A member of the RNA family "Small nucleolar RNA SNORA77" from Callithrix jacchus, 112 nucleotides long.
Taxonomically the source falls in Callithrix (Eukaryota, Bilateria, Vertebrata, Euarchontoglires).
A reference for the family is Schattner et al. (2006), "A computational screen for mammalian pseudouridylation guide H/ACA RNAs", RNA.
ACA63 (SNORA77) is a member of the H/ACA class of snoRNAs that guide the sites of modification of uridines to pseudouridines. This snoRNA was identified by computational screening and its expression in mouse experimentally verified by Northern blot and primer extension analysis.
[Rfam]
RNA sequence: GCCAACUCACUCAGCAUCCAGUGGGUGCUUCUUCUGUCAGCCAGUGAGCAUUUCAGGGUGCUGUGGCCACUUUGACCUCUCUAGGGUGAUGCAACUGCCUGGGGACAUAGAU
Numbered sequence: 001g002c003c004a005a006c007u008c009a010c011u012c013a014g015c016a017u018c019c020a021g022u023g024g025g026u027g028c029u030u031c032u033u034c035u036g037u038c039a040g041c042c043a044g045u046g047a048g049c050a051u052u053u054c055a056g057g058g059u060g061c062u063g064u065g066g067c068c069a070c071u072u073u074g075a076c077c078u079c080u081c082u083a084g085g086g087u088g089a090u091g092c093a094a095c096u097g098c099c100u101g102g103g104g105a106c107a108u109a110g111a112u
Base pairs, nucleotide, nucleotide: 001041002040005037006036014028015027016026017025018024019023053103054102056100057099058098059097060095062093063092064091065090068088069087070086071085072084